[Rfam]
RNA sequence: AAUGCGCCAAUUUGUAAGUCGCUCUGAAUAAGACCGUCUGCUAAAUGACAUAAA
Numbered sequence: 001a002a003u004g005c006g007c008c009a010a011u012u013u014g015u016a017a018g019u020c021g022c023u024c025u026g027a028a029u030a031a032g033a034c035c036g037u038c039u040g041c042u043a044a045a046u047g048a049c050a051u052a053a054a
Stems, first nucleotide, its partner, number of pairs: 013043001014041003020036002023033003

The record is a 54-nucleotide sequence from Salmo trutta, which matches "UnaL2 LINE 3' element" in Rfam. Rfam classes the family as a cis-regulatory element.